[Rfam]
RNA sequence: UCGAAUUUUCAUCUACAAAUGAUAAGAUUUUUGUCGAGUGUAUACGAAUCGUUGAAACCAAAGUAUCAAUACCCAUUGUCUUGCUUUUAGCAAGACAUUGUGUAGUGCUACUUU
Numbered sequence: 001u002c003g004a005a006u007u008u009u010c011a012u013c014u015a016c017a018a019a020u021g022a023u024a025a026g027a028u029u030u031u032u033g034u035c036g037a038g039u040g041u042a043u044a045c046g047a048a049u050c051g052u053u054g055a056a057a058c059c060a061a062a063g064u065a066u067c068a069a070u071a072c073c074c075a076u077u078g079u080c081u082u083g084c085u086u087u088u089a090g091c092a093a094g095a096c097a098u099u100g101u102g103u104a105g106u107g108c109u110a111c112u113u114u
Stems, first nucleotide, its partner, number of pairs: 008022001010021003060114006067107002070104003074100002078096005
RNA: Plastid-psbA-1 3UTR RNA